[Rfam]
RNA sequence: GAUCCGUCACCGGGCGGAUCACAGGACACCGGCGGAGCCUUCCGCAGCCGAGUUCAGCGGCCGAGUGUCCGCGGUUGCUCACACGAGCAGAGGUCAAACCCUCCACACCGCAGCGUACUGACC
Numbered sequence: 001g002a003u004c005c006g007u008c009a010c011c012g013g014g015c016g017g018a019u020c021a022c023a024g025g026a027c028a029c030c031g032g033c034g035g036a037g038c039c040u041u042c043c044g045c046a047g048c049c050g051a052g053u054u055c056a057g058c059g060g061c062c063g064a065g066u067g068u069c070c071g072c073g074g075u076u077g078c079u080c081a082c083a084c085g086a087g088c089a090g091a092g093g094u095c096a097a098a099c100c101c102u103c104c105a106c107a108c109c110g111c112a113g114c115g116u117a118c119u120g121a122c123c
Base pairs, nucleotide, nucleotide: 001020002019003018004017005016006015007014008013024070025069026068027067028066029065030063031062032045033044034043035042036041047061048060049059050058071111072110073109074108075107077088078087079086080085090103091102092101093100
RNA: xerDC RNA